A member of the RNA family "pemK RNA", 58 nucleotides long. Rfam's curators put it in the seed alignment. The family's consensus secondary structure is taken from published work. Rfam classes the family as a cis-regulatory element.
RNA sequence: ACAAUGAUACUUUUCUACGGAACCGGCGGAGUACCCGGCGGGGGUGAGAUUCCCAUGG
Numbered sequence: 001a002c003a004a005u006g007a008u009a010c011u012u013u014u015c016u017a018c019g020g021a022a023c024c025g026g027c028g029g030a031g032u033a034c035c036c037g038g039c040g041g042g043g044g045u046g047a048g049a050u051u052c053c054c055a056u057g058g
Base pairs, nucleotide, nucleotide: 012055013022014021015020023041024040025039027037028036029035042054043053044052